[Rfam]
RNA sequence: ACACGAGAAGGGAGGUGGUCCGAAGUUGGAUAGCAACAGGACUCGUGAGGUGACUGUCCGCUAACGGACUUCAUGGACUGCACACAGGAACUCCUUCCGACCACCUGUCGGCUCGUUUCCUGUGCAACCGUGUUUGCCUGUUAGCGAAUACCAGGCAGUCACCGGCCCCCUGGCGUUCCCGAGACCCGGUCCGACUCGGGCCCGAACGGCUGACGACGUUCGGGAGUCGCGCUGGGGGUUCCCCAUU
Numbered sequence: 001a002c003a004c005g006a007g008a009a010g011g012g013a014g015g016u017g018g019u020c021c022g023a024a025g026u027u028g029g030a031u032a033g034c035a036a037c038a039g040g041a042c043u044c045g046u047g048a049g050g051u052g053a054c055u056g057u058c059c060g061c062u063a064a065c066g067g068a069c070u071u072c073a074u075g076g077a078c079u080g081c082a083c084a085c086a087g088g089a090a091c092u093c094c095u096u097c098c099g100a101c102c103a104c105c106u107g108u109c110g111g112c113u114c115g116u117u118u119c120c121u122g123u124g125c126a127a128c129c130g131u132g133u134u135u136g137c138c139u140g141u142u143a144g145c146g147a148a149u150a151c152c153a154g155g156c157a158g159u160c161a162c163c164g165g166c167c168c169c170c171u172g173g174c175g176u177u178c179c180c181g182a183g184a185c186c187c188g189g190u191c192c193g194a195c196u197c198g199g200g201c202c203c204g205a206a207c208g209g210c211u212g213a214c215g216a217c218g219u220u221c222g223g224g225a226g227u228c229g230c231g232c233u234g235g236g237g238g239u240u241c242c243c244c245a246u247u
Stems, first nucleotide, its partner, number of pairs: 014058006059146007067138001069136001072132005164241002167238010178224006
RNA: Actinobacteria sRNA Ms_IGR-5